[Rfam]
RNA: skipping-rope RNA
RNA sequence: GUAGCUUGAGGAUAGGGAGUUGGUGACGCUAUCACACCCUUUGGGUCAAAAGAGAUGCUGGGUCAGUCACACCAGCCAAGUUAC
Numbered sequence: 001g002u003a004g005c006u007u008g009a010g011g012a013u014a015g016g017g018a019g020u021u022g023g024u025g026a027c028g029c030u031a032u033c034a035c036a037c038c039c040u041u042u043g044g045g046u047c048a049a050a051a052g053a054g055a056u057g058c059u060g061g062g063u064c065a066g067u068c069a070c071a072c073c074a075g076c077c078a079a080g081u082u083a084c
Stems, first nucleotide, its partner, number of pairs: 001084008011033005023070005035052001036046004057076005